Annotation:
The family of this 64-nucleotide sequence from Xenopus tropicalis is "mir-17 microRNA precursor family". This family represents the microRNA (miRNA) precursor mir-17, family, which includes mir-20, mir-91, and mir-103. miRNAs are transcribed as ~70nt precursors (modelled here) and subsequently processed by the Dicer enzyme to give a ~22nt product. In this case the mature sequence comes from the 3' arm of the precursor. The extents of the hairpin precursors are not generally known and are estimated based on hairpin prediction. Rfam links the family to the GO terms RISC complex and miRNA-mediated post-transcriptional gene silencing. The sequence is in the family's curated seed alignment. On this family, see Lagos-Quintana et al., Science 2001: "Identification of novel genes coding for small expressed RNAs".
RNA sequence: CUUCAAGUGCUGUUCGUGCAGGUAGCUUAAUAACAGACCUACUGCAUGGGCGGCACUUCCCAAG
Numbered sequence: 001c002u003u004c005a006a007g008u009g010c011u012g013u014u015c016g017u018g019c020a021g022g023u024a025g026c027u028u029a030a031u032a033a034c035a036g037a038c039c040u041a042c043u044g045c046a047u048g049g050g051c052g053g054c055a056c057u058u059c060c061c062a063a064g
Base pairs, nucleotide, nucleotide: 002062005058006057007056008055009054010053011052012051013050014049015048016047017046018045019044021043022042023041024040025039